[Rfam]
RNA sequence: CUCUGGGUCGGUGUCAAAAGGAUCCAGGGCGUGAAAGAG
Number, nucleotide and partner (000 for none) at each position: 001c029002u028003c027004u026005g025006g024007g023008u022009c000010g000011g000012u000013g000014u000015c000016a000017a000018a000019a000020g000021g000022a008023u007024c006025c005026a004027g003028g002029g001030c000031g000032u000033g000034a000035a000036a000037g000038a000039g000

The record is a 39-nucleotide sequence, which matches "L31-Firmicutes ribosomal protein leader" in Rfam. Its Rfam clan is "Ribosomal Protein L31 Leader clan". Rfam's curators put it in the seed alignment. On this family, see Eckert and Weinberg, BMC Microbiol 2020: "Discovery of 20 novel ribosomal leader candidates in bacteria and archaea".